[Rfam]
RNA sequence: GUCGCCGCGAGGCGGUGUGGAGAGCAACCGAAGGCGAAUGGUCAGUCCGUAGUAAAACGAAUCCGAUUCGGCAGGGUGCCGCGACGAGCCUGCGAUUUCAUGGCGAAGUCUGAGAAACCACGGUGAGCGCUAUCGAUAACGGUGAAAGCGACUCAUCGGCACACCAAGUGGUUGGGAGCGGAAUGACAGGAAGGCUAGGCGA
Numbered sequence: 001g002u003c004g005c006c007g008c009g010a011g012g013c014g015g016u017g018u019g020g021a022g023a024g025c026a027a028c029c030g031a032a033g034g035c036g037a038a039u040g041g042u043c044a045g046u047c048c049g050u051a052g053u054a055a056a057a058c059g060a061a062u063c064c065g066a067u068u069c070g071g072c073a074g075g076g077u078g079c080c081g082c083g084a085c086g087a088g089c090c091u092g093c094g095a096u097u098u099c100a101u102g103g104c105g106a107a108g109u110c111u112g113a114g115a116a117a118c119c120a121c122g123g124u125g126a127g128c129g130c131u132a133u134c135g136a137u138a139a140c141g142g143u144g145a146a147a148g149c150g151a152c153u154c155a156u157c158g159g160c161a162c163a164c165c166a167a168g169u170g171g172u173u174g175g176g177a178g179c180g181g182a183a184u185g186a187c188a189g190g191a192a193g194g195c196u197a198g199g200c201g202a
Stems, first nucleotide, its partner, number of pairs: 001016006029201002034195002039189001041187003045184001046182005062177003066173001071169002076162006083110003088104003
Dot-bracket structure: ((((((....))))))............((...((...(.(((.((((((...........(((.(....((...((((((.(((..(((...........)))...)))..............................................)))))).....))...).)))))))).)))).)....))....)).
A member of the RNA family "Group II catalytic intron D1-D4-3" from Massilia cavernae, 202 nucleotides long. Group II introns are found in rRNA, tRNA and mRNA of organelles in fungi, plants and protists, and also in mRNA in bacteria. For this family Rfam cites "Control of branch-site choice by a group II intron" (Chu et al., EMBO J, 2001). The pairing is the family consensus, mapped onto this sequence.